[Rfam]
RNA: Mammalian CPEB3 ribozyme
Organism: Alligator mississippiensis
Nucleotides: 075
Stems, first nucleotide, its partner, number of pairs: 014042002016039001019075007026038003047064007
Number, partner (000 for none) and nucleotide at each position: 001000u002000u003000g004000c005000a006000a007000a008000u009000u010000c011000a012000a013000a014042g015041a016039c017000a018000c019075a020074g021073u022072a023071g024070a025069a026038g027037c028036a029000c030000u031000c032000a033000u034000g035000g036028u037027g038026u039016g040000g041015u042014c043000c044000u045000g046000u047064c048063a049062g050061a051060u052059u053058u054000c055000a056000a057000c058053a059052a060051a061050u062049c063048u064047g065000u066000a067000a068000a069025u070024u071023c072022u073021g074020c075019u